[Rfam]
RNA sequence: UUUUUUCUUCGGGGUCGGGUGAAAUUCCCAAUCGGCGGUGAUGUAGUACAUAUACUAAUAAGCCCGCGAGCCAUAUAACUUCAUAAAUGAAGUUAAAGCCUCCGGCGGAUGCCUCAGAUUUUUAAAGGUAGUUUUUCGAGCAUGGUAGCUCGAUAAUAUCCGCUGGGCGCAAAUACGCCAAGGCGCAUUUGAUUGGCAGGAGCUGGUGUGAAUCCAGGGCCGACAGUUACAGUCUGGAUGGGAGAAGAGAAUG
Numbered sequence: 001u002u003u004u005u006u007c008u009u010c011g012g013g014g015u016c017g018g019g020u021g022a023a024a025u026u027c028c029c030a031a032u033c034g035g036c037g038g039u040g041a042u043g044u045a046g047u048a049c050a051u052a053u054a055c056u057a058a059u060a061a062g063c064c065c066g067c068g069a070g071c072c073a074u075a076u077a078a079c080u081u082c083a084u085a086a087a088u089g090a091a092g093u094u095a096a097a098g099c100c101u102c103c104g105g106c107g108g109a110u111g112c113c114u115c116a117g118a119u120u121u122u123u124a125a126a127g128g129u130a131g132u133u134u135u136u137c138g139a140g141c142a143u144g145g146u147a148g149c150u151c152g153a154u155a156a157u158a159u160c161c162g163c164u165g166g167g168c169g170c171a172a173a174u175a176c177g178c179c180a181a182g183g184c185g186c187a188u189u190u191g192a193u194u195g196g197c198a199g200g201a202g203c204u205g206g207u208g209u210g211a212a213u214c215c216a217g218g219g220c221c222g223a224c225a226g227u228u229a230c231a232g233u234c235u236g237g238a239u240g241g242g243a244g245a246a247g248a249g250a251a252u253g
Base pairs, nucleotide, nucleotide: 003251004250005249006248007247008246009245010244017029018028019027031233032232033222034221035067036066037065038064062220063219072196203217204216205215206214224236225235226234
RNA: FMN riboswitch aptamer (RFN element)
Organism: Schinkia azotoformans